This 61-nucleotide RNA from Canis lupus belongs to the Rfam family "mir-33 microRNA precursor family".
It is one of the family's seed sequences.
For this family Rfam cites "Direct sequencing and expression analysis of a large number of miRNAs in Aedes aegypti and a multi-species survey of novel mosquito miRNAs" (Li et al., BMC Genomics, 2009).
The family's consensus secondary structure was predicted with PFOLD.
The source organism's lineage runs through Eukaryota, Vertebrata, Amniota, Canidae and Canis lupus.
RNA sequence: GUGCAUUGUAGUUGCAUUGCAUGUUCUGGCGGUACCCGUGCAAUGUUUCCACAGUGCAUCA
Numbered sequence: 001g002u003g004c005a006u007u008g009u010a011g012u013u014g015c016a017u018u019g020c021a022u023g024u025u026c027u028g029g030c031g032g033u034a035c036c037c038g039u040g041c042a043a044u045g046u047u048u049c050c051a052c053a054g055u056g057c058a059u060c061a
Stems, first nucleotide, its partner, number of pairs: 001060001002058008011049001014046001016044007